[Rfam]
RNA sequence: UGUUCCGAGGAGCGUUGCAGCGCCCCAGGCCGACCGGGUUCACCGGCUGGCGCACACGGGCGUGAGGCUCGGAACCCUUCUUCUUGCAACGACGCUCAUCCACU
Numbered sequence: 001u002g003u004u005c006c007g008a009g010g011a012g013c014g015u016u017g018c019a020g021c022g023c024c025c026c027a028g029g030c031c032g033a034c035c036g037g038g039u040u041c042a043c044c045g046g047c048u049g050g051c052g053c054a055c056a057c058g059g060g061c062g063u064g065a066g067g068c069u070c071g072g073a074a075c076c077c078u079u080c081u082u083c084u085u086g087c088a089a090c091g092a093c094g095c096u097c098a099u100c101c102a103c104u
Stems, first nucleotide, its partner, number of pairs: 002075007021062005
RNA: SAH (S-adenosyl-L-homocysteine) riboswitch aptamer